EFASI RNA: a 132-nucleotide RNA from Prodigiosinella confusarubida.
RNA sequence: UUGAACCGAUACCGAGGCAGGCCCAACGGCCUGAGGGGAAAACCUGCAACCGCAGGCGGUCGCACAGAGUGCAUAAACCGACACCCCGCAAUACCUCAACCGCUGCCCGCUCUGGCGCACAGGUAUCGUUCA
Numbered sequence: 001u002u003g004a005a006c007c008g009a010u011a012c013c014g015a016g017g018c019a020g021g022c023c024c025a026a027c028g029g030c031c032u033g034a035g036g037g038g039a040a041a042a043c044c045u046g047c048a049a050c051c052g053c054a055g056g057c058g059g060u061c062g063c064a065c066a067g068a069g070u071g072c073a074u075a076a077a078c079c080g081a082c083a084c085c086c087c088g089c090a091a092u093a094c095c096u097c098a099a100c101c102g103c104u105g106c107c108c109g110c111u112c113u114g115g116c117g118c119a120c121a122g123g124u125a126u127c128g129u130u131c132a
Base pairs, nucleotide, nucleotide: 002132003131004130005129007128008127009126010125011124012123013122018033019032020031021030022029023028035087036086037085038084043056044055045054046053047052057080058079059078060077062072063071064070065069

Description:
By type it is a small RNA. Lineage of the source: Bacteria > Pseudomonadati > Gammaproteobacteria > Enterobacterales > Prodigiosinella.